[Rfam]
Nucleotides: 101
Stems, first nucleotide, its partner, number of pairs: 003055001005053001009049004015043002017089005028039004078096005
Number, partner (000 for none) and nucleotide at each position: 001000g002000g003055a004000a005053u006000a007000g008000a009049g010048a011047g012046c013000a014000a015043c016042u017089g018088g019087c020086g021085u022000u023000u024000c025000a026000a027000g028039a029038u030037g031036g032000g033000a034000a035000a036031c037030c038029a039028u040000c041000g042016g043015g044000g045000a046012g047011c048010u049009u050000g051000g052000a053005g054000a055003u056000c057000c058000c059000g060000u061000a062000g063000g064000g065000a066000u067000u068000g069000u070000u071000c072000a073000a074000u075000u076000g077000c078096c079095u080094g081093u082092c083000g084000c085021a086020c087019g088018c089017c090000u091000g092082g093081g094080c095079a096078g097000g098000a099000a100000c101000c